Shown here is an 89-nucleotide sequence from Myotis brandtii, a member of the family "mir-9195 microRNA precursor family".
[Rfam]
RNA sequence: AGAGGCCCUUCUGCGGCCAGGCGCAGAACGCUUGCCUCGUCGCCGGGGCGACAAAGCAAGCAUUCUGCCAGGCCACUCACACUGCCCAC
Numbered sequence: 001a002g003a004g005g006c007c008c009u010u011c012u013g014c015g016g017c018c019a020g021g022c023g024c025a026g027a028a029c030g031c032u033u034g035c036c037u038c039g040u041c042g043c044c045g046g047g048g049c050g051a052c053a054a055a056g057c058a059a060g061c062a063u064u065c066u067g068c069c070a071g072g073c074c075a076c077u078c079a080c081a082c083u084g085c086c087c088a089c
Stems, first nucleotide, its partner, number of pairs: 004086003013076001015074004021069001023068006030061006039052005
Record summary:
Gene Ontology terms of the family: miRNA-mediated post-transcriptional gene silencing and RISC complex. NCBI's taxonomy places the organism under Eukaryota, Chordata, Dipnotetrapodomorpha, Mammalia, Myotis. The match comes from Rfam's covariance-model search (95 bits).